[Rfam]
RNA sequence: CCCGCGCAUUAAGUAGUAGUGCCGUAGGUGAUUCGUAACUAAAAACUCACCUAUGCCCGACUACUUGGCACGCUGG
Numbered sequence: 001c002c003c004g005c006g007c008a009u010u011a012a013g014u015a016g017u018a019g020u021g022c023c024g025u026a027g028g029u030g031a032u033u034c035g036u037a038a039c040u041a042a043a044a045a046c047u048c049a050c051c052u053a054u055g056c057c058c059g060a061c062u063a064c065u066u067g068g069c070a071c072g073c074u075g076g
Stems, first nucleotide, its partner, number of pairs: 001076002004073003010067008019058001024054007
A member of the RNA family "mir-252 microRNA precursor family" from Cotesia congregata, 76 nucleotides long. The literature on the family includes a 2006 paper in Cell by Ruby et al., "Large-scale sequencing reveals 21U-RNAs and additional microRNAs and endogenous siRNAs in C. elegans". The family has 44 seed sequences and 422 matches in Rfam 15.1. Lineage of the source: Eukaryota > Opisthokonta > Allotriocarida > Endopterygota > Cotesia. Its Rfam clan is "mir-252 microRNA precursor family".